Record summary:
The record is a 98-nucleotide RNA sequence from Vibrio furnissii, which matches "t44 RNA" in Rfam.
RNA sequence: UAACAUUUAACUUUAAAUCACACACAUUCCGACACGUGUUCCGGGGUGCUUCCAGCGAGGCUGAGAAGUCGGAGACAUGGGGGAUGUGGAGGCCUAAC
Numbered sequence: 001u002a003a004c005a006u007u008u009a010a011c012u013u014u015a016a017a018u019c020a021c022a023c024a025c026a027u028u029c030c031g032a033c034a035c036g037u038g039u040u041c042c043g044g045g046g047u048g049c050u051u052c053c054a055g056c057g058a059g060g061c062u063g064a065g066a067a068g069u070c071g072g073a074g075a076c077a078u079g080g081g082g083g084a085u086g087u088g089g090a091g092g093c094c095u096a097a098c
Base pairs, nucleotide, nucleotide: 023088024087025086026085027084028083029082030081035079036078037077038076039075040073041072042071043070048069049068050067051066052065
The match comes from Rfam's covariance-model search (80 bits). The base pairs follow the family's consensus structure, which was predicted with LocARNA. For this family Rfam cites "Transcriptome analysis of Escherichia coli using high-density oligonucleotide probe arrays" (Tjaden et al., Nucleic Acids Res, 2002).